[Rfam]
The family of this 120-nucleotide RNA sequence from Asticcacaulis endophyticus is "Caulobacter sRNA CrfA".
Rfam 15.1 lists 41 matches to the family in 41 species.
The organism belongs to Asticcacaulis, within Bacteria.
A reference for the family is Landt et al. (2010), "CrfA, a small noncoding RNA regulator of adaptation to carbon starvation in Caulobacter crescentus", J Bacteriol.
RNA sequence: GAGAACGGAACUUUCCCCGAAGAGGAAAGUCGGUUCCCGGCGUUUCGGGGAGGAAACGCCUGCAUAACAAAGAAGGGCCUGUCAGAGAUUAUCCCCCUCAGACAGGCCCUUACUUUUUGU
Numbered sequence: 001g002a003g004a005a006c007g008g009a010a011c012u013u014u015c016c017c018c019g020a021a022g023a024g025g026a027a028a029g030u031c032g033g034u035u036c037c038c039g040g041c042g043u044u045u046c047g048g049g050g051a052g053g054a055a056a057c058g059c060c061u062g063c064a065u066a067a068c069a070a071a072g073a074a075g076g077g078c079c080u081g082u083c084a085g086a087g088a089u090u091a092u093c094c095c096c097c098u099c100a101g102a103c104a105g106g107c108c109c110u111u112a113c114u115u116u117u118u119g120u
Base pairs, nucleotide, nucleotide: 001037003035004034006032007031012029013028014027017024039060040059041058042057043056044055045054046053066117067116073111074110075109076108077107078106079105080104081103082102083101085099086098087097